Shown here is a 135-nucleotide RNA sequence from Semnornis frantzii, a member of the family "Small nucleolar RNA SNORA84". The literature on the family includes a 2002 paper in Curr Biol by Marker et al., "Experimental RNomics: identification of 140 candidates for small non-messenger RNAs in the plant Arabidopsis thaliana". A search with the family's covariance model found it, with a score of 106 bits. Taxonomically the source falls in Semnornis (Eukaryota, Metazoa, Craniata, Ramphastidae).
RNA sequence: GCCCUGUGGUUACUGGACGCUGGUUAAUACAUGCAGUGCUUCAGUUGGUAGAAAUGGGCCAACAGUGACACUGUGAUUCAUGCAUGGAGUCUGUGAUGUGUGAGCAGCUUCCAUAGCCCGGUCACAGUUACAGAC
Numbered sequence: 001g002c003c004c005u006g007u008g009g010u011u012a013c014u015g016g017a018c019g020c021u022g023g024u025u026a027a028u029a030c031a032u033g034c035a036g037u038g039c040u041u042c043a044g045u046u047g048g049u050a051g052a053a054a055u056g057g058g059c060c061a062a063c064a065g066u067g068a069c070a071c072u073g074u075g076a077u078u079c080a081u082g083c084a085u086g087g088a089g090u091c092u093g094u095g096a097u098g099u100g101u102g103a104g105c106a107g108c109u110u111c112c113a114u115a116g117c118c119c120g121g122u123c124a125c126a127g128u129u130a131c132a133g134a135c
Base pairs, nucleotide, nucleotide: 001059002058003057004056007050008049010047012045013044014043015042016041017040019037020036021035022034071127073125074124075123076122077121078120082117083116084114085113086112087111089109091107092106093105094104